[Rfam]
A member of the RNA family "TPP riboswitch aptamer (THI element)" from Massilimicrobiota sp. An134, 100 nucleotides long. The literature on the family includes a 2002 paper in J Biol Chem by Rodionov et al., "Comparative genomics of thiamin biosynthesis in procaryotes. New genes and regulatory mechanisms". A search with the family's covariance model found it, with a score of 57 bits. Taxonomically the source falls in Massiliimicrobium (Bacteria, Bacillati, Bacillota, Erysipelotrichales). Gene Ontology term of the family: thiamine pyrophosphate binding.
Nucleotides: 100
Base pairs, nucleotide, nucleotide: 008086009085011049012048013047014046017024018023031042032041033040034039055080056079057078058077061074062073063072064071
Number, partner (000 for none) and nucleotide at each position: 001000g002000a003000u004000a005000u006000g007000a008086g009085c010000c011049a012048g013047g014046g015000g016000c017024g018023c019000a020000u021000u022000u023018g024017c025000u026000g027000a028000g029000a030000a031042a032041g033040g034039u035000u036000u037000u038000c039034a040033c041032c042031u043000u044000g045000u046014c047013c048012c049011u050000u051000a052000u053000g054000a055080u056079c057078u058077g059000a060000a061074c062073u063072g064071g065000g066000u067000a068000a069000u070000g071064c072063c073062a074061g075000c076000g077058u078057a079056g080055a081000g082000a083000g084000u085009g086008c087000a088000a089000a090000u091000a092000a093000u094000g095000a096000u097000u098000u099000u100000u